[Rfam]
RNA sequence: GGCCAGGCCCAUCAGGGCUUGUGGAAUGGGAAGGAGAAGGGACGCUUCCCCUUCUGCAGGCCUGCUGGGUGUGGCU
Number, nucleotide and partner (000 for none) at each position: 001g076002g075003c074004c073005a072006g000007g070008c069009c068010c067011a066012u000013c064014a063015g062016g061017g000018c060019u059020u058021g057022u056023g055024g054025a053026a052027u000028g050029g049030g048031a047032a046033g045034g000035a000036g000037a000038a000039g000040g000041g000042a000043c000044g000045c033046u032047u031048c030049c029050c028051c000052u026053u025054c024055u023056g022057c021058a020059g019060g018061c016062c015063u014064g013065c000066u011067g010068g009069g008070u007071g000072u005073g004074g003075c002076u001
Record summary: Shown here is a 76-nucleotide RNA from Homo sapiens, a member of the family "mir-3127 microRNA precursor family". Pairs were carried over by alignment from the consensus structure, which was predicted with RNAalifold. It is one of the family's seed sequences.